[Rfam]
RNA: Bacillus sRNA ncr1015
Organism: Paenibacillus sedimenti
RNA sequence: GUGUAGGAUGCAAUAAUUACGUCUAUGUAAAUUAUUGAAGUCGUAAUCUGAUUAUAUCAUCGUGUCUGUUUAUAUUCAAUAUGAAAGAACCUGAUAAAACUACCCAGGUUCUUUUUUGA
Numbered sequence: 001g002u003g004u005a006g007g008a009u010g011c012a013a014u015a016a017u018u019a020c021g022u023c024u025a026u027g028u029a030a031a032u033u034a035u036u037g038a039a040g041u042c043g044u045a046a047u048c049u050g051a052u053u054a055u056a057u058c059a060u061c062g063u064g065u066c067u068g069u070u071u072a073u074a075u076u077c078a079a080u081a082u083g084a085a086a087g088a089a090c091c092u093g094a095u096a097a098a099a100c101u102a103c104c105c106a107g108g109u110u111c112u113u114u115u116u117u118g119a
Stems, first nucleotide, its partner, number of pairs: 034073002037070002042062002083115011